The family of this 75-nucleotide RNA sequence from Ziziphus jujuba is "Plastid-ycf2 5UTR RNA". Pairs were carried over by alignment from the consensus structure, which was predicted with LocARNA. It is annotated as a cis-regulatory element. Plastid ycf2 is a non-coding RNA (ncRNA) recognised in plastids. It was found in the prime untranslated region (5UTR) of ycf2 genes, it presents a tRNA-like motif which suggests it can be involved in mRNA maturation, particularly involved in defining the precise 5' end of the transcript. Rfam 15.1 lists 3,521 matches to the family in 417 species. The match comes from Rfam's covariance-model search (71 bits).

RNA sequence: AGCCAUUCAGUAGGAAUUGAACCUAUGAUUUUGCCAAUUAUGAUUUGGGUGCUUUAACCAUUCAGCAAUGGAUGC
Number, nucleotide and partner (000 for none) at each position: 001a000002g075003c000004c074005a073006u072007u071008c070009a000010g026011u025012a024013g023014g022015a000016a000017u000018u000019g000020a000021a000022c014023c013024u012025a011026u010027g000028a000029u000030u000031u000032u000033g000034c000035c000036a000037a000038u000039u000040a069041u068042g000043a000044u000045u065046u064047g063048g062049g061050u060051g059052c000053u000054u000055u000056a000057a000058c000059c051060a050061u049062u048063c047064a046065g045066c000067a000068a041069u040070g008071g007072a006073u005074g004075c002